A member of the RNA family "Bacterial RNase P class B" from Enterococcus asini, 371 nucleotides long.

RNA sequence: AUUUUCGGGCAAUCGCGGGCCGGCUUGACCGGUCUGAGGAAAGUCCAUGCUCGCACCGGCUGAGAUGCUGGUAGUGUUCGUGCCUGGCGAAACCAUAAGCCAGGGUACCGAGAAAUCGGUAACGGCAGGAAAAACACCCUAAGGCUAUGCUAUGGGUCAGUAUCCUUGAAAGUGCCACAGUGACGAAGCGCCAUUGGAAACAAUGGCGGUGGAACGGGGUAAACCCCUCGAGCGAGCAACCCAAACAAUGGUAGGGGCGCUUCUUUGACGGAAUCAAACGAAUACAAGAAGGCAAUGAAAUUGCAGAUAGAUGAUUGCCCAAGGUUGUCUCGGACCUGACAGACAACCUGGACAGAACAUGGCUUAUAGAA
Numbered sequence: 001a002u003u004u005u006c007g008g009g010c011a012a013u014c015g016c017g018g019g020c021c022g023g024c025u026u027g028a029c030c031g032g033u034c035u036g037a038g039g040a041a042a043g044u045c046c047a048u049g050c051u052c053g054c055a056c057c058g059g060c061u062g063a064g065a066u067g068c069u070g071g072u073a074g075u076g077u078u079c080g081u082g083c084c085u086g087g088c089g090a091a092a093c094c095a096u097a098a099g100c101c102a103g104g105g106u107a108c109c110g111a112g113a114a115a116u117c118g119g120u121a122a123c124g125g126c127a128g129g130a131a132a133a134a135c136a137c138c139c140u141a142a143g144g145c146u147a148u149g150c151u152a153u154g155g156g157u158c159a160g161u162a163u164c165c166u167u168g169a170a171a172g173u174g175c176c177a178c179a180g181u182g183a184c185g186a187a188g189c190g191c192c193a194u195u196g197g198a199a200a201c202a203a204u205g206g207c208g209g210u211g212g213a214a215c216g217g218g219g220u221a222a223a224c225c226c227c228u229c230g231a232g233c234g235a236g237c238a239a240c241c242c243a244a245a246c247a248a249u250g251g252u253a254g255g256g257g258c259g260c261u262u263c264u265u266u267g268a269c270g271g272a273a274u275c276a277a278a279c280g281a282a283u284a285c286a287a288g289a290a291g292g293c294a295a296u297g298a299a300a301u302u303g304c305a306g307a308u309a310g311a312u313g314a315u316u317g318c319c320c321a322a323g324g325u326u327g328u329c330u331c332g333g334a335c336c337u338g339a340c341a342g343a344c345a346a347c348c349u350g351g352a353c354a355g356a357a358c359a360u361g362g363c364u365u366a367u368a369g370a371a
Stems, first nucleotide, its partner, number of pairs: 004371003007367001008319007016036006041365003045362005050236005055072006078231003082227001083104006105123001106121006124226002127166004136157004143151003172224002174220003189208008240256003260291006292304005322349008
Pairs were carried over by alignment from the consensus structure, which is taken from published work. Gene Ontology terms of the family: ribonuclease P activity, tRNA processing and dimeric ribonuclease P complex. Taxonomically the source falls in Enterococcus asini (Bacteria, Bacillota, Bacilli, Enterococcus). About the family: Ribonuclease P (RNase P) is a ubiquitous endoribonuclease, found in archaea, bacteria and eukarya as well as chloroplasts and mitochondria. Its best characterised activity is the generation of mature 5'-ends of tRNAs by cleaving the 5'-leader elements of precursor-tRNAs. Cellular RNase Ps are ribonucleoproteins.